[Rfam]
RNA sequence: CUUGGCUAUGGUGACAUGGUACCAGCAACAAUAAUGGGUAAAGUUGUUGGUGGUGUUUGUUCCCUUAGUGGAGUUUUGGUAAUUGCACUUCCUGUUCCAGUAAGUUUUAUCUUUUGAG
Numbered sequence: 001c002u003u004g005g006c007u008a009u010g011g012u013g014a015c016a017u018g019g020u021a022c023c024a025g026c027a028a029c030a031a032u033a034a035u036g037g038g039u040a041a042a043g044u045u046g047u048u049g050g051u052g053g054u055g056u057u058u059g060u061u062c063c064c065u066u067a068g069u070g071g072a073g074u075u076u077u078g079g080u081a082a083u084u085g086c087a088c089u090u091c092c093u094g095u096u097c098c099a100g101u102a103a104g105u106u107u108u109a110u111c112u113u114u115u116g117a118g
Stems, first nucleotide, its partner, number of pairs: 001118002004115002008110004014101002018097002021095002037077002040074001049063002